The family of this 47-nucleotide RNA from Pseudomonas sp. M30-35 is "Guanidine-II riboswitch aptamer (mini-ykkC)". Rfam's curators write: Simpler in structure and has fewer highly conserved nucleotide positions than the ykkC-yxkD leader. Despite this each of its two stem-loop structures directly bind free guanidine. Therefore, mini-ykkC RNA motif represents a distinct class of guanidine-sensing RNAs. Its crystal structure was also determined. The match comes from Rfam's covariance-model search (41 bits).
RNA sequence: AGCCACGGACGACCGUGGCGCAGCUCACCCACAGCGGGACGACCUGC
Numbered sequence: 001a002g003c004c005a006c007g008g009a010c011g012a013c014c015g016u017g018g019c020g021c022a023g024c025u026c027a028c029c030c031a032c033a034g035c036g037g038g039a040c041g042a043c044c045u046g047c
Base pairs, nucleotide, nucleotide: 002019003018004017005016006015007014008013034047035046036045037044038043